[Rfam]
RNA sequence: GGCCCAAAACUUGCUCAGCCACUGCCUAGAGGGCCAUCAACGUCGAUGCCCCCCGACAUUCCACGACAAAGGCGCCGU
Numbered sequence: 001g002g003c004c005c006a007a008a009a010c011u012u013g014c015u016c017a018g019c020c021a022c023u024g025c026c027u028a029g030a031g032g033g034c035c036a037u038c039a040a041c042g043u044c045g046a047u048g049c050c051c052c053c054c055g056a057c058a059u060u061c062c063a064c065g066a067c068a069a070a071g072g073c074g075c076c077g078u
Stems, first nucleotide, its partner, number of pairs: 032051002035048004
narK RNA: a 78-nucleotide RNA sequence from Pseudomonas sp. VLB120. Pairs were carried over by alignment from the consensus structure, which is taken from published work.